[Rfam]
RNA sequence: GUCACCUUGGGAUCUUGUUAAAAUGCAUAUUCUGAUUCACUAUGUUUGGCCUAAGAUUCUGCAUUUUUAACAAGCUCCCAGGUGAUGUUGA
Dot-bracket structure: ..(((...(((..((((((((((.(((.(.(((....................))).).))).))).))))))).)))...))).......
RNA: mir-544 microRNA precursor family